RNA: Small nucleolar RNA snoR53Y
Organism: Dendrobium catenatum
RNA sequence: GUACCAGUGAUGCUUAUUUGAACCAUGCUAAUUCUGAUCAUUUGAUGACUCUGAUUUUCUUAUGAGGGAACC
Numbered sequence: 001g002u003a004c005c006a007g008u009g010a011u012g013c014u015u016a017u018u019u020g021a022a023c024c025a026u027g028c029u030a031a032u033u034c035u036g037a038u039c040a041u042u043u044g045a046u047g048a049c050u051c052u053g054a055u056u057u058u059c060u061u062a063u064g065a066g067g068g069a070a071c072c
Base pairs, nucleotide, nucleotide: 001071002070004068005067
Dot-bracket structure: ((.((.............................................................)).)).